The record is a 76-nucleotide RNA from Sphingomonas jatrophae, which matches "Makes More Granules Regulator RNA (mmgR)" in Rfam. Lineage of the source: Bacteria > Pseudomonadati > Alphaproteobacteria > Sphingomonadaceae > Sphingomonas. By type it is a small RNA. SuhB later renamed mmgR (makes more granules regulator) was a putative non-coding RNA found multiple times in the Agrobacterium tumefaciens genome and related alpha-proteobacteria. Other non-coding RNAs uncovered in the same analysis include: speF, ybhL, metA, and serC.Several studies inSinorhizobium meliloti showed that suhB element is indeed a non-coding RNA:firstly it was detected on Northern blot and called Sm8RNA, secondly in an RNAseq study referred to as SmelC689.The mutant phenotype's (strain lacking the small RNA) cytoplasm contains higher content of polyhydroxybutyrate (PBH)storage granules than wild type strain.
[Rfam]
RNA sequence: CGCACGUGCCUUUUAGGCAUCCUCUCCUAGACUUCAGGCCGGCGCCGCAAGGCAGCCGGCCUUUUUUUGCGCCCGC
Numbered sequence: 001c002g003c004a005c006g007u008g009c010c011u012u013u014u015a016g017g018c019a020u021c022c023u024c025u026c027c028u029a030g031a032c033u034u035c036a037g038g039c040c041g042g043c044g045c046c047g048c049a050a051g052g053c054a055g056c057c058g059g060c061c062u063u064u065u066u067u068u069g070c071g072c073c074c075g076c
Base pairs, nucleotide, nucleotide: 008018009017010016011015037061038060039059040058041057042056043055044053045052